RNA sequence: UUGACUUAGAAAUGAGAAUCGUUAUGAUUAUCGCAUCCGGUCGCGAGACUGGACGGUAACUGAAAGACCUUGGUUCGGACUUUCAGAUUAUCUCCUCAUCAGGCUAAUCACGGUUUUUGACCCGGCUCUUUGCCGGGUCUUUUUUUG
Numbered sequence: 001u002u003g004a005c006u007u008a009g010a011a012a013u014g015a016g017a018a019u020c021g022u023u024a025u026g027a028u029u030a031u032c033g034c035a036u037c038c039g040g041u042c043g044c045g046a047g048a049c050u051g052g053a054c055g056g057u058a059a060c061u062g063a064a065a066g067a068c069c070u071u072g073g074u075u076c077g078g079a080c081u082u083u084c085a086g087a088u089u090a091u092c093u094c095c096u097c098a099u100c101a102g103g104c105u106a107a108u109c110a111c112g113g114u115u116u117u118u119g120a121c122c123c124g125g126c127u128c129u130u131u132g133c134c135g136g137g138u139c140u141u142u143u144u145u146u147g
Base pairs, nucleotide, nucleotide: 034055036053037052038051039050040049041048042047060086061085062084063083064082065081066080068077094103095102096101119139120138121137122136123135124134125133126132

The record is a 147-nucleotide RNA from Pseudomonas savastanoi, which matches "PrrF RNA" in Rfam. It is annotated as a small RNA. About the family: PrrF RNA is a small RNA involved in iron homeostasis and is found exclusively in Pseudomonas species. The literature on the family includes a 2004 paper in Proc Natl Acad Sci U S A by Wilderman et al., "Identification of tandem duplicate regulatory small RNAs in Pseudomonas aeruginosa involved in iron homeostasis". It is one of the family's seed sequences. Gene Ontology term of the family: sRNA-mediated gene silencing.